Annotation:
This 83-nucleotide RNA sequence from Halohasta litchfieldiae belongs to the Rfam family "tRNA".

RNA sequence: GGUGGGAUGGCAGAGUGGACUAUUGCGCCUGCCUUGAAAGCAGGUGGCCUUCGGCCUCCAGGGUUCGAAUCCCUGUCCCACCG
Numbered sequence: 001g002g003u004g005g006g007a008u009g010g011c012a013g014a015g016u017g018g019a020c021u022a023u024u025g026c027g028c029c030u031g032c033c034u035u036g037a038a039a040g041c042a043g044g045u046g047g048c049c050u051u052c053g054g055c056c057u058c059c060a061g062g063g064u065u066c067g068a069a070u071c072c073c074u075g076u077c078c079c080a081c082c083g
Stems, first nucleotide, its partner, number of pairs: 001082007010026004028044005059075005
Dot-bracket structure: (((((((..((((.........)))).(((((.......)))))..............(((((.......)))))))))))).